The record is an 80-nucleotide RNA from Hermetia illucens, which matches "drz-agam-1 ribozyme" in Rfam. Pairs were carried over by alignment from the consensus structure, which is taken from published work. The match comes from Rfam's covariance-model search (37 bits). Taxonomically the source falls in Hermetia (Eukaryota, Bilateria, Endopterygota, Diptera). A reference for the family is Webb et al. (2009), "Widespread occurrence of self-cleaving ribozymes", Science. Gene Ontology term of the family: catalytic activity.
RNA sequence: UUAUUUCUAAACCCUAUCUCCACCUCCACGUGGUGCCCGCUGGGAGCUCUUUCAUAACGAAAAGCUGCAGACGGAGGAGG
Dot-bracket structure: ............(((.(.((.(((.......)))..........((((.((.(.....))).))))......)).).)))